[Rfam]
RNA sequence: GUAGGUUAUGGAGACAUUUACCCAAAAACCCUGCUGGGAAAGAUAGUCGGAGGUUUGUGCUGCAUUGCAGGGGUCUUGGUGAUCGCCUUACCUAUUCCUAUUAUUGUAAAUAAC
Numbered sequence: 001g002u003a004g005g006u007u008a009u010g011g012a013g014a015c016a017u018u019u020a021c022c023c024a025a026a027a028a029c030c031c032u033g034c035u036g037g038g039a040a041a042g043a044u045a046g047u048c049g050g051a052g053g054u055u056u057g058u059g060c061u062g063c064a065u066u067g068c069a070g071g072g073g074u075c076u077u078g079g080u081g082a083u084c085g086c087c088u089u090a091c092c093u094a095u096u097c098c099u100a101u102u103a104u105u106g107u108a109a110a111u112a113a114c
Stems, first nucleotide, its partner, number of pairs: 001114002004111001007108005013102002016099001020095001037077002040074001049063001051061001
RNA: Potassium channel RNA editing signal